This 114-nucleotide RNA sequence from Thermomonospora curvata belongs to the Rfam family "TPP riboswitch aptamer (THI element)". The source organism's lineage runs through Bacteria, Streptosporangiales, Thermomonosporaceae, Thermomonospora and Thermomonospora curvata.
RNA sequence: GGCGACGAGCGCGGGAGCCCGGUGCGACCGGGCUGAGAGGGCGGCUGAACGGGCCGCCGACCGCCAGGACCUGAUCCGGAUCAUGCCGGCGAAGGGAGCAUGCCGAUGCCGACC
Numbered sequence: 001g002g003c004g005a006c007g008a009g010c011g012c013g014g015g016a017g018c019c020c021g022g023u024g025c026g027a028c029c030g031g032g033c034u035g036a037g038a039g040g041g042c043g044g045c046u047g048a049a050c051g052g053g054c055c056g057c058c059g060a061c062c063g064c065c066a067g068g069a070c071c072u073g074a075u076c077c078g079g080a081u082c083a084u085g086c087c088g089g090c091g092a093a094g095g096g097a098g099c100a101u102g103c104c105g106a107u108g109c110c111g112a113c114c
Stems, first nucleotide, its partner, number of pairs: 006102002009099002011064004017033005040058007070095003076089004